[Rfam]
RNA sequence: AGCAUUAAGGUGGGUGGAAUAAUAUAACAAUCUCCAUGUUGUUAUAGUAUUCCACCUACCCUGAUGUA
Numbered sequence: 001a002g003c004a005u006u007a008a009g010g011u012g013g014g015u016g017g018a019a020u021a022a023u024a025u026a027a028c029a030a031u032c033u034c035c036a037u038g039u040u041g042u043u044a045u046a047g048u049a050u051u052c053c054a055c056c057u058a059c060c061c062u063g064a065u066g067u068a
Stems, first nucleotide, its partner, number of pairs: 003066005009060009019050003023046009
RNA: mir-2985 microRNA precursor family